Rfam assigns this 183-nucleotide RNA from Vibrio cholerae to the family "Lysine riboswitch aptamer". Lineage of the source: Bacteria > Pseudomonadota > Gammaproteobacteria > Vibrio cholerae O1 > Vibrio cholerae O1 biovar El Tor. The match comes from Rfam's covariance-model search (121 bits). Its family is annotated with lysine biosynthetic process in the Gene Ontology.

RNA sequence: UUUCGCCGUAGAGGAGCGGUUACGAAAAGUAUCCACAGUUGGGGUGAUGCCAAUGAAUUGUGGAAAAAGGCGUUGCCGCCGAAGUCAACUUGCCCAUCAACGCAGUUGGCUGGGGUUACAUUCAAUAGGUGUAACACUGCCAUAGUCUAUAUUGUUGUUAAACUAUGGAGCGCUACUGUAGGG
Numbered sequence: 001u002u003u004c005g006c007c008g009u010a011g012a013g014g015a016g017c018g019g020u021u022a023c024g025a026a027a028a029g030u031a032u033c034c035a036c037a038g039u040u041g042g043g044g045u046g047a048u049g050c051c052a053a054u055g056a057a058u059u060g061u062g063g064a065a066a067a068a069g070g071c072g073u074u075g076c077c078g079c080c081g082a083a084g085u086c087a088a089c090u091u092g093c094c095c096a097u098c099a100a101c102g103c104a105g106u107u108g109g110c111u112g113g114g115g116u117u118a119c120a121u122u123c124a125a126u127a128g129g130u131g132u133a134a135c136a137c138u139g140c141c142a143u144a145g146u147c148u149a150u151a152u153u154g155u156u157g158u159u160a161a162a163c164u165a166u167g168g169a170g171c172g173c174u175a176c177u178g179u180a181g182g183g
Base pairs, nucleotide, nucleotide: 006178008176009175010174011173016079017078018077019076020075022073023072024071032064033063034062035061036060037059038058039057083111084110085109086108087107088106089105090104093102112138113137115135116134117133118132119131120130121129122128140168141167142166143165144164145163146162